[Rfam]
RNA: MIR1520 microRNA precursor family
RNA sequence: UUGUAAAUUUGGUUGUCACGUGUCAUAUUCUGAUUGGAUGUCAACUCCAUGAAAGAUGAGAUGCAUUGUUGUUUUCAUUGACCAAUCAGAAUAUGACAUGUGACAGUCAUCAUCC
Dot-bracket structure: ..............((((.((..(((.((((.(((................................................))).)))).)))..)).))))...........